Rfam assigns this 66-nucleotide RNA to the family "RAGATH-18 RNA".
RNA sequence: CCUGUGGAGAAUUAUAUCAAACGAAAGUAGUAUUUAUUUACAAAAUCGGAUUCGAUGAAACAGGAA
Dot-bracket structure: (((((...(((((........(((.....(((......)))....))))))))......)))))..
Notes: The family's consensus secondary structure is taken from published work.